[Rfam]
RNA sequence: UUCUGACACCUUUCACAACGGAUCGUCCGGCACGUACCUGCCGGUGAAGGGCUGUAAUUA
Numbered sequence: 001u002u003c004u005g006a007c008a009c010c011u012u013u014c015a016c017a018a019c020g021g022a023u024c025g026u027c028c029g030g031c032a033c034g035u036a037c038c039u040g041c042c043g044g045u046g047a048a049g050g051g052c053u054g055u056a057a058u059u060a
Base pairs, nucleotide, nucleotide: 009051010050011049012048013047014046015045027044028043029042030041031040032039
msiK RNA: a 60-nucleotide sequence from Sanguibacter gelidistatuariae. The match comes from Rfam's covariance-model search (68 bits).